The family of this 102-nucleotide RNA from Flavisolibacter ginsenosidimutans is "TPP riboswitch aptamer (THI element)". Its family is annotated with thiamine pyrophosphate binding in the Gene Ontology.
RNA sequence: UCAGUGUUACCGGGGUGCUUUCCGCUUAUACGGAAGGCUGAGAUCAAACCCGCAAAACCUGAUCAGGGUAAUGCCUGCGCAGGGAGCAAACCAAGUUCAAGG
Numbered sequence: 001u002c003a004g005u006g007u008u009a010c011c012g013g014g015g016u017g018c019u020u021u022c023c024g025c026u027u028a029u030a031c032g033g034a035a036g037g038c039u040g041a042g043a044u045c046a047a048a049c050c051c052g053c054a055a056a057a058c059c060u061g062a063u064c065a066g067g068g069u070a071a072u073g074c075c076u077g078c079g080c081a082g083g084g085a086g087c088a089a090a091c092c093a094a095g096u097u098c099a100a101g102g
Stems, first nucleotide, its partner, number of pairs: 007089002010086001011052004016046001017038008058083004064077004